Notes: The family of this 56-nucleotide RNA from Salinispora pacifica is "L31-Actinobacteria ribosomal protein leader". The literature on the family includes a 2020 paper in BMC Microbiol by Eckert and Weinberg, "Discovery of 20 novel ribosomal leader candidates in bacteria and archaea".
RNA sequence: CCGGUUCCGGUUCACGCCCAUCCGUCGUACACCUGCGGCCGGGCGACCCGGCGACC
Numbered sequence: 001c002c003g004g005u006u007c008c009g010g011u012u013c014a015c016g017c018c019c020a021u022c023c024g025u026c027g028u029a030c031a032c033c034u035g036c037g038g039c040c041g042g043g044c045g046a047c048c049c050g051g052c053g054a055c056c
Stems, first nucleotide, its partner, number of pairs: 003056003007051004015045005022038004